[Rfam]
The record is a 106-nucleotide RNA from Prunus dulcis, which matches "MIR6274 microRNA precursor family" in Rfam. The base pairs follow the family's consensus structure, which was predicted with RNAalifold. Rfam 15.1 lists 342 matches to the family in 8 species. It scores 81 bits against the family's covariance model.
RNA sequence: GGAUAUCAUUUUUUUUCUAUCCUCGGCCAAUAACACAAUAAUAUGUAAAAUAACUUUUUCACAUAUUAGUGUGUUAUUGGUUGGAAAUAACAAAAUAGUAAUAUUC
Number, nucleotide and partner (000 for none) at each position: 001g000002g105003a104004u103005a102006u000007c000008a000009u000010u000011u000012u095013u094014u093015u092016u000017c000018u089019a088020u087021c000022c000023u084024c083025g082026g081027c080028c079029a078030a077031u076032a075033a074034c073035a072036c071037a070038a000039u068040a067041a066042u065043a064044u063045g062046u061047a000048a059049a058050a057051u000052a000053a000054c000055u000056u000057u050058u049059u048060c000061a046062c045063a044064u043065a042066u041067u040068a039069g000070u037071g036072u035073g034074u033075u032076a031077u030078u029079g028080g027081u026082u025083g024084g023085a000086a000087a020088u019089a018090a000091c000092a015093a014094a013095a012096u000097a000098g000099u000100a000101a000102u005103a004104u003105u002106c000